[Rfam]
Notes: This 111-nucleotide RNA sequence from Citrobacter freundii belongs to the Rfam family "iscR stability element". The organism belongs to Citrobacter freundii complex, within Bacteria. For this family Rfam cites "Small RNA-induced differential degradation of the polycistronic mRNA iscRSUA" (Desnoyers et al., EMBO J, 2009). It scores 111 bits against the family's covariance model. Rfam classes the family as a cis-regulatory element.

RNA sequence: UAAAAGUAUUUUAGAAUCAGGCCGGGGUGUUGGACACCCCGUUAACUCGGCCGUACAUCCAGCCGGUUGCCUGGUUCCUUGCAUUGAAGCGAUGUACGGAGUUUAUAGAGC
Numbered sequence: 001u002a003a004a005a006g007u008a009u010u011u012u013a014g015a016a017u018c019a020g021g022c023c024g025g026g027g028u029g030u031u032g033g034a035c036a037c038c039c040c041g042u043u044a045a046c047u048c049g050g051c052c053g054u055a056c057a058u059c060c061a062g063c064c065g066g067u068u069g070c071c072u073g074g075u076u077c078c079u080u081g082c083a084u085u086g087a088a089g090c091g092a093u094g095u096a097c098g099g100a101g102u103u104u105a106u107a108g109a110g111c
Stems, first nucleotide, its partner, number of pairs: 008103001010101003014077009023041006045067002048065003080096001082094003